[Rfam]
RNA sequence: UAGUAUUUAUAUCUCCGAGCUUUUGCCCCUGUCGGUUGUAACCGUGGUGCCGGAGCCUGUACCUGAAUCAGCGAAUGGAUCGAUGAAUAUAAGUGCAAGUCAUUGCCGCGUCUGAGUUCACAAAAAAUGACCGCCGAACCUAUGGUGCGACUCACAUUUUUUGCAAACUCAUUCACGACAAGCACUUACACUCCUUUUUCACCGACCAGCCACUGAUCCAGGCUAAGGGUAGUGCUGGAAACGGCACUGCCUCCCGUGUUUGGAAAGGAGUUUCGCAGCACAUAUC
Numbered sequence: 001u002a003g004u005a006u007u008u009a010u011a012u013c014u015c016c017g018a019g020c021u022u023u024u025g026c027c028c029c030u031g032u033c034g035g036u037u038g039u040a041a042c043c044g045u046g047g048u049g050c051c052g053g054a055g056c057c058u059g060u061a062c063c064u065g066a067a068u069c070a071g072c073g074a075a076u077g078g079a080u081c082g083a084u085g086a087a088u089a090u091a092a093g094u095g096c097a098a099g100u101c102a103u104u105g106c107c108g109c110g111u112c113u114g115a116g117u118u119c120a121c122a123a124a125a126a127a128u129g130a131c132c133g134c135c136g137a138a139c140c141u142a143u144g145g146u147g148c149g150a151c152u153c154a155c156a157u158u159u160u161u162u163g164c165a166a167a168c169u170c171a172u173u174c175a176c177g178a179c180a181a182g183c184a185c186u187u188a189c190a191c192u193c194c195u196u197u198u199u200c201a202c203c204g205a206c207c208a209g210c211c212a213c214u215g216a217u218c219c220a221g222g223c224u225a226a227g228g229g230u231a232g233u234g235c236u237g238g239a240a241a242c243g244g245c246a247c248u249g250c251c252u253c254c255c256g257u258g259u260u261u262g263g264a265a266a267g268g269a270g271u272u273u274c275g276c277a278g279c280a281c282a283u284a285u286c
Base pairs, nucleotide, nucleotide: 006277011272013270014269015268016267019056020055021054022053023052025050026049028047029046033044034043035042036041059223227252228251229250230249231248232247233246234245235244236243237242253263254262
RNA: Molybdenum/Tungsten riboswitch aptamer (Moco RNA motif)
Organism: Malonomonas rubra